About this RNA: Shown here is a 100-nucleotide RNA sequence from Populus trichocarpa, a member of the family "MIR6438 microRNA precursor family". The sequence is in the family's curated seed alignment. Taxonomically the source falls in Populus (Eukaryota, Viridiplantae, fabids, Saliceae).
RNA sequence: GAAAGCUAUUUCACUAUUCUGUGCACACAAUGCUUGAAACAUUAAUCAUGGUUUUUGAAAGUAUUGGAGCAUUGUACACAGAAUAGGUGAAAUAACUUUC
Numbered sequence: 001g002a003a004a005g006c007u008a009u010u011u012c013a014c015u016a017u018u019c020u021g022u023g024c025a026c027a028c029a030a031u032g033c034u035u036g037a038a039a040c041a042u043u044a045a046u047c048a049u050g051g052u053u054u055u056u057g058a059a060a061g062u063a064u065u066g067g068a069g070c071a072u073u074g075u076a077c078a079c080a081g082a083a084u085a086g087g088u089g090a091a092a093u094a095a096c097u098u099u100c
Base pairs, nucleotide, nucleotide: 001100002099003098004097005096007094008093009092010091011090012089013088014087017083018082019081020080021079022078023077032070033069034068035067037065038064039062040061042058043057044056045055
Dot-bracket structure: (((((.((((((((..(((((((........((((.((((.((((.........))))..)).)).))))......)))))))...)))))))).)))))